A member of the RNA family "c-di-GMP-I-GGC riboswitch aptamer" from Paenibacillus baekrokdamisoli, 83 nucleotides long. It scores 66 bits against the family's covariance model. Lineage of the source: Bacteria > Bacillati > Caryophanales > Paenibacillaceae > Paenibacillus. The base pairs follow the family's consensus structure, which is taken from published work.
[Rfam]
RNA sequence: UACGAUAAUGGCAAACCUGCCGAAAAGCAGGGACGCAAAGCUAAAGGGCCUUCCCCGUUUUGGGUGGCAGCCAGCUACCGAAA
Numbered sequence: 001u002a003c004g005a006u007a008a009u010g011g012c013a014a015a016c017c018u019g020c021c022g023a024a025a026a027g028c029a030g031g032g033a034c035g036c037a038a039a040g041c042u043a044a045a046g047g048g049c050c051u052u053c054c055c056c057g058u059u060u061u062g063g064g065u066g067g068c069a070g071c072c073a074g075c076u077a078c079c080g081a082a083a
Base pairs, nucleotide, nucleotide: 001083003080004079011036012035016031017030018029019028020027034070039076040075041074042073046072047071048068049067050066